[Rfam]
RNA sequence: CCUGUGGAUCGUUAUACAAACGAAAGUAGUCUAAAGACGAAUACGUCUUUGAUAAAAUCGGACGGGAUGAAGCAGGAA
Numbered sequence: 001c002c003u004g005u006g007g008a009u010c011g012u013u014a015u016a017c018a019a020a021c022g023a024a025a026g027u028a029g030u031c032u033a034a035a036g037a038c039g040a041a042u043a044c045g046u047c048u049u050u051g052a053u054a055a056a057a058u059c060g061g062a063c064g065g066g067a068u069g070a071a072g073c074a075g076g077a078a
Stems, first nucleotide, its partner, number of pairs: 001076005009065005021060003029053003034049005
RAGATH-18 RNA: a 78-nucleotide RNA sequence.
It is annotated as a small RNA.